[Rfam]
Background:
Rfam assigns this 74-nucleotide sequence from Betaproteobacteria bacterium MOLA814 to the family "tRNA". It scores 59 bits against the family's covariance model. The source organism's lineage runs through Bacteria, Pseudomonadati, Pseudomonadota and Betaproteobacteria.

RNA sequence: CUGGCCGUAGCUCAUCUGGAUAGAGCAAUGUCCUUCUAAGACAUGGGUAGGGGGUUCGAGUCCCUCCGGCCAGG
Numbered sequence: 001c002u003g004g005c006c007g008u009a010g011c012u013c014a015u016c017u018g019g020a021u022a023g024a025g026c027a028a029u030g031u032c033c034u035u036c037u038a039a040g041a042c043a044u045g046g047g048u049a050g051g052g053g054g055u056u057c058g059a060g061u062c063c064c065u066c067c068g069g070c071c072a073g074g
Base pairs, nucleotide, nucleotide: 001073002072003071004070005069006068007067010026011025012024013023028044029043030042031041032040050066051065052064053063054062